[Rfam]
RNA sequence: AAAAAGGGCUUCUGCCGUGUGUGGCACGGGGGGGCUCCACGCCACCUCCGCGGAAUCGACAUCAAGAGAUUUCGGAAGCACAAUUUUUGUAAGGGAGGGCCGCCGGUAACCGCUCGUUCCGGCACCCCA
Numbered sequence: 001a002a003a004a005a006g007g008g009c010u011u012c013u014g015c016c017g018u019g020u021g022u023g024g025c026a027c028g029g030g031g032g033g034g035c036u037c038c039a040c041g042c043c044a045c046c047u048c049c050g051c052g053g054a055a056u057c058g059a060c061a062u063c064a065a066g067a068g069a070u071u072u073c074g075g076a077a078g079c080a081c082a083a084u085u086u087u088u089g090u091a092a093g094g095g096a097g098g099g100c101c102g103c104c105g106g107u108a109a110c111c112g113c114u115c116g117u118u119c120c121g122g123c124a125c126c127c128c129a
Stems, first nucleotide, its partner, number of pairs: 008079005013026005027050006033043003051074007097127003102123005108118003
The record is a 129-nucleotide RNA from Corvus moneduloides, which matches "U11 spliceosomal RNA" in Rfam. The organism belongs to Corvus, within Eukaryota. By type it is a spliceosomal small nuclear RNA. Rfam 15.1 lists 2,595 matches to the family in 1,202 species. It scores 107 bits against the family's covariance model.